This 116-nucleotide RNA from Thiomonas bhubaneswarensis belongs to the Rfam family "ALIL pseudoknot". The base pairs follow the family's consensus structure, which is taken from published work.
RNA sequence: CGCCUAUUUCGCCCUGCGCGGAUCGACCGCCAUCACAAGAAGUGAACGCCUUCAUCGACGCACACCGCGCGCGCCUCGGGGUCGAGCCGAUCUGCACCGCGCUGCAGGUUGCCCCG
Numbered sequence: 001c002g003c004c005u006a007u008u009u010c011g012c013c014c015u016g017c018g019c020g021g022a023u024c025g026a027c028c029g030c031c032a033u034c035a036c037a038a039g040a041a042g043u044g045a046a047c048g049c050c051u052u053c054a055u056c057g058a059c060g061c062a063c064a065c066c067g068c069g070c071g072c073g074c075c076u077c078g079g080g081g082u083c084g085a086g087c088c089g090a091u092c093u094g095c096a097c098c099g100c101g102c103u104g105c106a107g108g109u110u111g112c113c114c115c116g
Base pairs, nucleotide, nucleotide: 016031018030019029020028021027077116078115079114080113081112088111089110091108092107093106094105095104096103
The source organism's lineage runs through Bacteria, Pseudomonadati, Betaproteobacteria, Burkholderiales and Thiomonas. The family's RNA type in Rfam is cis-regulatory element.